[Rfam]
Nucleotides: 075
Base pairs, nucleotide, nucleotide: 003015004014005013016048017047018046019045020044021043022042023041024040026038027037028036
Number, partner (000 for none) and nucleotide at each position: 001000u002000c003015u004014u005013a006000g007000a008000a009000u010000u011000a012000a013005u014004a015003a016048a017047c018046a019045c020044g021043g022042g023041c024040g025000a026038a027037g028036a029000g030000u031000u032000u033000u034000a035000a036028u037027c038026u039000u040024c041023g042022c043021c044020c045019g046018u047017g048016u049000a050000a051000g052000u053000a054000u055000g056000u057000u058000a059000u060000a061000g062000a063000u064000u065000a066000g067000g068000a069000a070000a071000a072000u073000u074000a075000u